[Rfam]
RNA sequence: UCUCCCGUUAGAUAUGUUUGAUAUUCUUGGUUUUGAUAACAAUUUUCAAGUAACCAGAAGUCAAACAUAUGUUAUGGUGGA
Numbered sequence: 001u002c003u004c005c006c007g008u009u010a011g012a013u014a015u016g017u018u019u020g021a022u023a024u025u026c027u028u029g030g031u032u033u034u035g036a037u038a039a040c041a042a043u044u045u046u047c048a049a050g051u052a053a054c055c056a057g058a059a060g061u062c063a064a065a066c067a068u069a070u071g072u073u074a075u076g077g078u079g080g081a
Stems, first nucleotide, its partner, number of pairs: 005077004012070011024058002029055004

The family of this 81-nucleotide RNA sequence from Lepeophtheirus salmonis is "mir-190 microRNA precursor family". Gene Ontology terms of the family: RISC complex and miRNA-mediated post-transcriptional gene silencing. A search with the family's covariance model found it, with a score of 52 bits. Its Rfam clan is "mir-50 clan". The family's consensus secondary structure was predicted with RNAalifold.